[Rfam]
RNA sequence: UGGUGGCAAGGAUGAUGAUACAAUUAGAUGUCUGAAUGGAGUUAUCCAUGAAAGAAAAUUUCGAGGCUUAUUGAUAUUCUGACAUUGCCAUCA
Numbered sequence: 001u002g003g004u005g006g007c008a009a010g011g012a013u014g015a016u017g018a019u020a021c022a023a024u025u026a027g028a029u030g031u032c033u034g035a036a037u038g039g040a041g042u043u044a045u046c047c048a049u050g051a052a053a054g055a056a057a058a059u060u061u062c063g064a065g066g067c068u069u070a071u072u073g074a075u076a077u078u079c080u081g082a083c084a085u086u087g088c089c090a091u092c093a
Stems, first nucleotide, its partner, number of pairs: 001093009010083001
RNA: Small nucleolar RNA Z266